[Rfam]
RNA: Small nucleolar RNA SNORA4
RNA sequence: CUACCAAAAGUUAAAUUUCAAGGGUAAAGUUUUUAAAUAAGCUUUACCAAUCUAGGCUAUUUGGGAGACUAAAAGACCACACUCCACAGUGAACUAUACCACUCAGUAUAGUUCAUUACUAUUUUGUGGCUACAUU
Numbered sequence: 001c002u003a004c005c006a007a008a009a010g011u012u013a014a015a016u017u018u019c020a021a022g023g024g025u026a027a028a029g030u031u032u033u034u035a036a037a038u039a040a041g042c043u044u045u046a047c048c049a050a051u052c053u054a055g056g057c058u059a060u061u062u063g064g065g066a067g068a069c070u071a072a073a074a075g076a077c078c079a080c081a082c083u084c085c086a087c088a089g090u091g092a093a094c095u096a097u098a099c100c101a102c103u104c105a106g107u108a109u110a111g112u113u114c115a116u117u118a119c120u121a122u123u124u125u126g127u128g129g130c131u132a133c134a135u136u
Stems, first nucleotide, its partner, number of pairs: 004064005012059002016055002022051001028045001029042004074131002077129005088117012